[Rfam]
Rfam assigns this 72-nucleotide RNA from Medicago truncatula to the family "MIR2629 microRNA precursor family". Taxonomically the source falls in Medicago (Eukaryota, Spermatophyta, fabids, Trifolieae).

RNA sequence: AUUUGAGGUUUCCUCUGGCAGUUAACUGCCGAAGUUUUCAGUUUUCCUCGGUAGUUUACUGCCGAGGGACAU
Numbered sequence: 001a002u003u004u005g006a007g008g009u010u011u012c013c014u015c016u017g018g019c020a021g022u023u024a025a026c027u028g029c030c031g032a033a034g035u036u037u038u039c040a041g042u043u044u045u046c047c048u049c050g051g052u053a054g055u056u057u058a059c060u061g062c063c064g065a066g067g068g069a070c071a072u
Base pairs, nucleotide, nucleotide: 012068013067016064017063018062019061020060021059022058024056025055026054027053028052029051030050031049032048